Shown here is a 124-nucleotide RNA sequence from Shimwellia blattae, a member of the family "Enterobacteria greA leader". By type it is a cis-regulatory leader. The organism belongs to Shimwellia blattae, within Bacteria.
RNA sequence: GUCAUACUACGGUGCAACACCUGGUAAAGUAAACGGUGGGUGACCCCCGCGGAACUUCGCGGUAAAAUAUUUAUCAAAUUGCCAUAACAGACUGGCCCGGCGCUUCUCCGGGUCGGUUUUCUUU
Numbered sequence: 001g002u003c004a005u006a007c008u009a010c011g012g013u014g015c016a017a018c019a020c021c022u023g024g025u026a027a028a029g030u031a032a033a034c035g036g037u038g039g040g041u042g043a044c045c046c047c048c049g050c051g052g053a054a055c056u057u058c059g060c061g062g063u064a065a066a067a068u069a070u071u072u073a074u075c076a077a078a079u080u081g082c083c084a085u086a087a088c089a090g091a092c093u094g095g096c097c098c099g100g101c102g103c104u105u106c107u108c109c110g111g112g113u114c115g116g117u118u119u120u121c122u123u124u
Base pairs, nucleotide, nucleotide: 001044002043003042004041005040010035011034014030015029045052046051061075062074063073064072091117092116093115094114095113096112097111098110099109100108

The family's consensus secondary structure is taken from published work. It scores 82 bits against the family's covariance model. Its family is annotated with regulation of gene expression in the Gene Ontology.